[Rfam]
RNA sequence: UAACAUACCCACGCCUUACCAGGACUAAACAGCGUGGUAAAACAACAGUCCUUCAUACCCACACUGGAGGGUGGUGUGGGAAUACUACUACCG
Number, nucleotide and partner (000 for none) at each position: 001u000002a000003a000004c000005a000006u000007a000008c000009c000010c036011a035012c034013g033014c032015c000016u000017u031018a000019c000020c000021a052022g051023g050024a049025c048026u000027a000028a000029a000030c000031a017032g014033c013034g012035u011036g010037g000038u000039a000040a000041a000042a000043c000044a000045a000046c000047a000048g025049u024050c023051c022052u021053u000054c000055a000056u000057a000058c080059c079060c078061a077062c076063a075064c074065u000066g000067g000068a000069g000070g000071g000072u000073g000074g064075u063076g062077u061078g060079g059080g058081a000082a000083u000084a000085c000086u000087a000088c000089u000090a000091c000092c000093g000
Shown here is a 93-nucleotide sequence, a member of the family "PhotoRC-II RNA". It is one of the family's seed sequences. Rfam classes the family as a cis-regulatory element.